[Rfam]
Description
The family of this 136-nucleotide RNA from Chaetura pelagica is "Small Cajal body specific RNA 11". The family's consensus secondary structure was predicted with RNAalifold. On this family, see Darzacq et al., EMBO J 2002: "Cajal body-specific small nuclear RNAs: a novel class of 2'-O-methylation and pseudouridylation guide RNAs". The match comes from Rfam's covariance-model search (54 bits). From the family's description: scaRNAs are a specific class of small nuclear RNAs which localise to the Cajal bodies and guide the modification of RNA polymerase II transcribed spliceosomal RNAs U1, U2, U4, U5 and U12. ACA57 belongs to the H/ACA box class of guide RNAs as it has the predicted hairpin-hinge-hairpin-tail structure, conserved H/ACA-box motifs and is found associated with GAR1. ACA57 is predicted to guide the pseudouridylation of the U5 spliceosomal RNA at position U43. The source organism's lineage runs through Eukaryota, Euteleostomi, Theropoda, Neognathae and Chaetura. Rfam links the family to the GO terms nucleolus, RNA processing and Cajal body.
Nucleotides: 136
Stems, first nucleotide, its partner, number of pairs: 002066005010057002026052002028049001030047004075131006084121002088117007095109002097106002
Number, partner (000 for none) and nucleotide at each position: 001000g002066c003065g004064u005063c006062c007000u008000g009000a010057c011056c012000u013000c014000a015000u016000c017000c018000u019000g020000g021000c022000u023000g024000u025000u026052c027051c028049c029000c030047u031046c032045a033044c034000c035000a036000g037000a038000a039000c040000g041000g042000u043000g044033g045032u046031g047030g048000u049028g050000g051027g052026g053000u054000u055000u056011g057010g058000g059000a060000g061000u062006g063005g064004a065003c066002g067000c068000a069000g070000a071000u072000c073000a074000a075131c076130u077129u078128c079127u080126u081000g082000u083000g084121u085120u086000a087000g088117g089116a090115g091114g092113g093112c094111u095109g096108c097106c098105a099000a100000a101000g102000a103000c104000a105098u106097g107000u108096g109095c110000a111094a112093g113092c114091c115090c116089u117088u118000a119000a120085a121084g122000g123000c124000a125000a126080g127079a128078g129077a130076g131075g132000a133000c134000a135000c136000u